About this RNA: Rfam assigns this 98-nucleotide sequence from Spirochaeta sp. LUC14_002_19_P3 to the family "Bacterial small signal recognition particle RNA". Clan: SRP clan. The family's RNA type in Rfam is non-coding RNA gene. A search with the family's covariance model found it, with a score of 68 bits. For this family Rfam cites "SRPDB: Signal Recognition Particle Database" (Rosenblad et al., Nucleic Acids Res, 2003). The organism belongs to Spirochaeta, within Bacteria.
[Rfam]
RNA sequence: UAGCAGGUUCCGUGUUAGCGGCUGCCGCCUAACCCCGUCAGGUCCGGAAGGAAGCAGCGGUAAGCGGCCAGCCGCUGUGCACGUCCGGCUUGCUAUUC
Numbered sequence: 001u002a003g004c005a006g007g008u009u010c011c012g013u014g015u016u017a018g019c020g021g022c023u024g025c026c027g028c029c030u031a032a033c034c035c036c037g038u039c040a041g042g043u044c045c046g047g048a049a050g051g052a053a054g055c056a057g058c059g060g061u062a063a064g065c066g067g068c069c070a071g072c073c074g075c076u077g078u079g080c081a082c083g084u085c086c087g088g089c090u091u092g093c094u095a096u097u098c
Stems, first nucleotide, its partner, number of pairs: 004092005011083004015077001017076006024068005030062001035060004043052003